Annotation: Shown here is an 84-nucleotide RNA from Ricinus communis, a member of the family "Small nucleolar RNA R11/Z151". The literature on the family includes a 2001 paper in J Mol Biol by Barneche et al., "Identification of 66 box C/D snoRNAs in Arabidopsis thaliana: extensive gene duplications generated multiple isoforms predicting new ribosomal RNA 2'-O-methylation sites". Rfam links the family to the GO terms RNA processing and nucleolus. Pairs were carried over by alignment from the consensus structure, which was predicted with PFOLD.
RNA sequence: GGGCUAAUGAUGAUAAUAAUAGUAAUUAUCUUAGCGGAUUUCAGUGAGACAUCAAUGAUCUGAUUGUUACACACAUUGAAGCCC
Numbered sequence: 001g002g003g004c005u006a007a008u009g010a011u012g013a014u015a016a017u018a019a020u021a022g023u024a025a026u027u028a029u030c031u032u033a034g035c036g037g038a039u040u041u042c043a044g045u046g047a048g049a050c051a052u053c054a055a056u057g058a059u060c061u062g063a064u065u066g067u068u069a070c071a072c073a074c075a076u077u078g079a080a081g082c083c084c
Base pairs, nucleotide, nucleotide: 001084002083003082004081005080